[Rfam]
RNA sequence: CUUUCCCUUAAAGGCGUUGCCAGUGUGGAUGCUGUGUCACAUGGGCAUCAAUAGGUGGCAGAAAGGAGAGAGGCUAUGUCUUUGCUCAAUGUUCCAAUCUAUGAAUAUCCGAACAAUUAGUUCCUGAAGAA
Numbered sequence: 001c002u003u004u005c006c007c008u009u010a011a012a013g014g015c016g017u018u019g020c021c022a023g024u025g026u027g028g029a030u031g032c033u034g035u036g037u038c039a040c041a042u043g044g045g046c047a048u049c050a051a052u053a054g055g056u057g058g059c060a061g062a063a064a065g066g067a068g069a070g071a072g073g074c075u076a077u078g079u080c081u082u083u084g085c086u087c088a089a090u091g092u093u094c095c096a097a098u099c100u101a102u103g104a105a106u107a108u109c110c111g112a113a114c115a116a117u118u119a120g121u122u123c124c125u126g127a128a129g130a131a
Base pairs, nucleotide, nucleotide: 002061003060005058006057007055008054009053010052013049014048019046020045021044024041025040026039027038028037071125072124073123076121077120082116083115084114086112087111090107091106092105093104094103
RNA: Small nucleolar RNA SNORA17
Organism: Mus musculus